The family of this 253-nucleotide RNA sequence from Kosmotoga olearia is "Group II catalytic intron D1-D4-6". It is one of the family's seed sequences. The base pairs follow the family's consensus structure. Group II introns are found in rRNA, tRNA and mRNA of organelles in fungi, plants and protists, and also in mRNA in bacteria.
RNA sequence: UAAACCCACCAAGGCAAAAGCCAGAACCUUGUAGCUUGGUCAGCAAGGGGGAAGGAAACUGAACUCUUGAAGCCUGACGACAAAGCCAUCGGAAGGAUGGUGAGGGAGUAUCCGGGCCGUAACGAAAGUGAACGCACAGGUAGCCUCGAAACCCUUAUUCCCGGAAGCCGAAUCCAUGGUACAGGGAUGAAGGCAACAUGAAUUCACGAAAACUGGAUGAAACGUGGAUUCAUUCUGGCGGGGUGAUAGCGAC
Number, nucleotide and partner (000 for none) at each position: 001u000002a000003a000004a000005c000006c000007c000008a000009c000010c031011a030012a029013g028014g027015c000016a000017a000018a000019a000020g000021c219022c000023a000024g000025a000026a000027c014028c013029u012030u011031g010032u000033a000034g086035c085036u084037u083038g000039g078040u077041c076042a000043g073044c069045a068046a067047g066048g065049g064050g000051g000052a000053a060054g059055g000056a000057a000058a000059c054060u053061g000062a000063a000064c049065u048066c047067u046068u045069g044070a000071a000072g000073c043074c000075u000076g041077a040078c039079g000080a000081c000082a000083a037084a036085g035086c034087c000088a000089u000090c000091g000092g000093a000094a000095g000096g000097a000098u000099g000100g000101u000102g000103a000104g000105g000106g000107a000108g000109u000110a000111u000112c000113c000114g000115g000116g000117c000118c000119g000120u000121a000122a000123c000124g000125a000126a000127a000128g000129u000130g000131a000132a000133c000134g000135c000136a000137c000138a000139g000140g247141u245142a000143g244144c243145c242146u241147c240148g239149a000150a000151a000152c000153c000154c000155u000156u000157a000158u000159u000160c000161c238162c237163g236164g235165a234166a233167g194168c193169c192170g000171a000172a188173u187174c186175c185176a000177u000178g000179g000180u000181a000182c000183a000184g000185g175186g174187a173188u172189g000190a000191a000192g169193g168194c167195a000196a000197c000198a000199u232200g231201a230202a229203u228204u227205c226206a225207c224208g223209a000210a000211a000212a000213c000214u000215g000216g000217a000218u000219g021220a000221a000222a000223c208224g207225u206226g205227g204228a203229u202230u201231c200232a199233u166234u165235c164236u163237g162238g161239c148240g147241g146242g145243g144244u143245g141246a000247u140248a000249g000250c000251g000252a000253c000